[Rfam]
RNA: Group II catalytic intron D1-D4-1
RNA sequence: CUACUGACAUCGAGAGAUGUUGGGAUGGGAUAUCAGAAGUCAGCCGAGGCCGUAGUAGUGUUAUUAAACCGAUAGCACGAAGGGC
Dot-bracket structure: (..((((((((....))))))))...)............((....)).(((......((((((.........))))))....)))